[Rfam]
RNA sequence: GAAAUUAAGAAGAAGCACCCGCUUCUCGCCUUAGUGAUAUUUAUGACUGGGCUAGAUAGUAAGAUUAACCUUAUUUUGGUAAGGCUAAUUGUUUAGGUGCGGGUCUUUUAAUUUUAAAAGGACUCGUUUUUUCGUAUUUUC
Numbered sequence: 001g002a003a004a005u006u007a008a009g010a011a012g013a014a015g016c017a018c019c020c021g022c023u024u025c026u027c028g029c030c031u032u033a034g035u036g037a038u039a040u041u042u043a044u045g046a047c048u049g050g051g052c053u054a055g056a057u058a059g060u061a062a063g064a065u066u067a068a069c070c071u072u073a074u075u076u077u078g079g080u081a082a083g084g085c086u087a088a089u090u091g092u093u094u095a096g097g098u099g100c101g102g103g104u105c106u107u108u109u110a111a112u113u114u115u116a117a118a119a120g121g122a123c124u125c126g127u128u129u130u131u132u133c134g135u136a137u138u139u140u141c
Stems, first nucleotide, its partner, number of pairs: 011026006028052003034047002037044002099127011
Dot-bracket structure: ..........((((((....)))))).(((...((.((....)).))..)))..............................................(((((((((((.......)))))))))))..............
Notes: The family of this 141-nucleotide RNA from Vagococcus carniphilus is "Ribosomal protein L20 leader". Rfam describes the family as follows. This family is a putative r-protein leader autoregulatory structure found in B. subtilis and other low-GC Gram-positive bacteria. It is located in the 5' untranslated regions of mRNAs encoding initiation factor 3 followed by ribosomal proteins L35 and L20 (infC-rpmI-rplT). A Rho-independent transcription terminator structure that is probably involved in regulation is included at the 3' end. It scores 61 bits against the family's covariance model.